A member of the RNA family "mir-263 microRNA precursor family" from Ladona fulva, 81 nucleotides long. The base pairs follow the family's consensus structure, which was predicted with RNAalifold. For this family Rfam cites "Direct sequencing and expression analysis of a large number of miRNAs in Aedes aegypti and a multi-species survey of novel mosquito miRNAs" (Li et al., BMC Genomics, 2009). Lineage of the source: Eukaryota > Metazoa > Protostomia > Palaeoptera > Ladona.

[Rfam]
RNA sequence: CGUUUACUCUUAAUGGCACUGGAAGAAUUCACGGGGAUUUAUUGACGUCCCGUGGUUCCUCGGUGCUAUAGAGAGUGAUAG
Numbered sequence: 001c002g003u004u005u006a007c008u009c010u011u012a013a014u015g016g017c018a019c020u021g022g023a024a025g026a027a028u029u030c031a032c033g034g035g036g037a038u039u040u041a042u043u044g045a046c047g048u049c050c051c052g053u054g055g056u057u058c059c060u061c062g063g064u065g066c067u068a069u070a071g072a073g074a075g076u077g078a079u080a081g
Stems, first nucleotide, its partner, number of pairs: 004078007013069006020062003025057002029055006